[Rfam]
RNA: U12 minor spliceosomal RNA
Organism: Elaeis guineensis
RNA sequence: CUGCCUUAAACUAAUGAGUAAGGAAAACAAAGCGGGUGGUGGGAGCUGCCCGCCGCGCUAAUCGUUUUGCGCACUAUUUUUUGGAGGGGUUAUAGGCUGGUCGGGCGUGGACGCUGCUUACUUCGCAGAACCGGCUCGCGCGGGCCUCCCAACCC
Numbered sequence: 001c002u003g004c005c006u007u008a009a010a011c012u013a014a015u016g017a018g019u020a021a022g023g024a025a026a027a028c029a030a031a032g033c034g035g036g037u038g039g040u041g042g043g044a045g046c047u048g049c050c051c052g053c054c055g056c057g058c059u060a061a062u063c064g065u066u067u068u069g070c071g072c073a074c075u076a077u078u079u080u081u082u083g084g085a086g087g088g089g090u091u092a093u094a095g096g097c098u099g100g101u102c103g104g105g106c107g108u109g110g111a112c113g114c115u116g117c118u119u120a121c122u123u124c125g126c127a128g129a130a131c132c133g134g135c136u137c138g139c140g141c142g143g144g145c146c147u148c149c150c151a152a153c154c155c
Base pairs, nucleotide, nucleotide: 004023005022006021007020008019032053033052034051035050036049037048038047039046055072056071057070058069087155088154089153090152091151094147095146096145097144098143100141102138103137105135106134109131114128115127116126117125